[Rfam]
RNA sequence: GUCGAGCUCGGUUGCACGAGCUUGUCAUCCAAGUGGAGGCAUCAGGUGCUUUGAAUGAUUGUCUUUGUUACAUAGGUUGGGUCGCAUUUGGUCAGUUGUACUGGCCCACCCGAUCCAAGAUGGGCAGUGAUGUUUUUUAUCUAGGUGAAAGCUUGUGUUAGAAGCCUCCUAAAUUGGAGGGGAAAGCGUGAGGCUGGUUUAACAGAGUAGUGAUUACCUCUAGCUCUCGUCGGUGGAUGGAUAAUGGGCCGAUGGGCUAAGUAACUCAUUUAAGCUCUUGGGUAGGCUUUACAAUUAGACAAAGCAUUUU
Numbered sequence: 001g002u003c004g005a006g007c008u009c010g011g012u013u014g015c016a017c018g019a020g021c022u023u024g025u026c027a028u029c030c031a032a033g034u035g036g037a038g039g040c041a042u043c044a045g046g047u048g049c050u051u052u053g054a055a056u057g058a059u060u061g062u063c064u065u066u067g068u069u070a071c072a073u074a075g076g077u078u079g080g081g082u083c084g085c086a087u088u089u090g091g092u093c094a095g096u097u098g099u100a101c102u103g104g105c106c107c108a109c110c111c112g113a114u115c116c117a118a119g120a121u122g123g124g125c126a127g128u129g130a131u132g133u134u135u136u137u138u139a140u141c142u143a144g145g146u147g148a149a150a151g152c153u154u155g156u157g158u159u160a161g162a163a164g165c166c167u168c169c170u171a172a173a174u175u176g177g178a179g180g181g182g183a184a185a186g187c188g189u190g191a192g193g194c195u196g197g198u199u200u201a202a203c204a205g206a207g208u209a210g211u212g213a214u215u216a217c218c219u220c221u222a223g224c225u226c227u228c229g230u231c232g233g234u235g236g237a238u239g240g241a242u243a244a245u246g247g248g249c250c251g252a253u254g255g256g257c258u259a260a261g262u263a264a265c266u267c268a269u270u271u272a273a274g275c276u277c278u279u280g281g282g283u284a285g286g287c288u289u290u291a292c293a294a295u296u297a298g299a300c301a302a303a304g305c306a307u308u309u310u
Stems, first nucleotide, its partner, number of pairs: 001040003004023007028037003044309010056297002059294003064286004069282001071280002075276004079267004084262002088259001090258003095253001102251007110240002113238005119231006126225003129168002132165006139158002142155005175222006185214001187212003194205003

Source information: Shown here is a 310-nucleotide RNA from Dendrobium nobile, a member of the family "Plant signal recognition particle RNA". It is annotated as a non-coding RNA gene. Taxonomically the source falls in Dendrobium (Eukaryota, Spermatophyta, Liliopsida, Dendrobieae).